[Rfam]
RNA sequence: CAAGGGACUUAAGGCAAACUUGAGUGCGCCGGCGGAAAUGCCGGACGUAGAACUGCUCAAAUUCGGGGAACCCUGUCAGAUGGCGAUCCCGAGCCAAGCCCGAGCGAUCGGGAAGGUGUAGAGACUAGACGGGCAGCACCUAAGGCGUUUGCUAGGGUGAAGGUAUAGUCCAGACCACAAACGCCGAAGGGCGGCG
Numbered sequence: 001c002a003a004g005g006g007a008c009u010u011a012a013g014g015c016a017a018a019c020u021u022g023a024g025u026g027c028g029c030c031g032g033c034g035g036a037a038a039u040g041c042c043g044g045a046c047g048u049a050g051a052a053c054u055g056c057u058c059a060a061a062u063u064c065g066g067g068g069a070a071c072c073c074u075g076u077c078a079g080a081u082g083g084c085g086a087u088c089c090c091g092a093g094c095c096a097a098g099c100c101c102g103a104g105c106g107a108u109c110g111g112g113a114a115g116g117u118g119u120a121g122a123g124a125c126u127a128g129a130c131g132g133g134c135a136g137c138a139c140c141u142a143a144g145g146c147g148u149u150u151g152c153u154a155g156g157g158u159g160a161a162g163g164u165a166u167a168g169u170c171c172a173g174a175c176c177a178c179a180a181a182c183g184c185c186g187a188a189g190g191g192c193g194g195c196g
Stems, first nucleotide, its partner, number of pairs: 005027001007025007031042003053136004058131001063092006072083002093117002099111002121171001123170005139157003143153002178194001182193004
Dot-bracket structure: ....(.(((((((.....))))))).)...(((......)))..........[[[[.[....((((((...((........))...))))))((....((.........))....))...(.(((((...].]]]]..(((.((.......)).)))........))))))......(...((((....)))))..

This 196-nucleotide sequence from Breoghania corrubedonensis belongs to the Rfam family "Group I catalytic intron". On this family, see Cech, Annu Rev Biochem 1990: "Self-splicing of group I introns". Rfam's curators write: Group I catalytic introns are large self-splicing ribozymes. They catalyse their own excision from mRNA, tRNA and rRNA precursors in a wide range of organisms. The core secondary structure consists of 9 paired regions (P1-P9). These fold to essentially two domains - the P4-P6 domain (formed from the stacking of P5, P4, P6 and P6a helices) and the P3-P9 domain (formed from the P8, P3, P7 and P9 helices). The secondary structure mark-up for this family represents only this conserved core. Group I catalytic introns often have long ORFs inserted in loop regions. The window size for this search is chosen to minimise search time and catch the small examples. A larger window size will find more matches.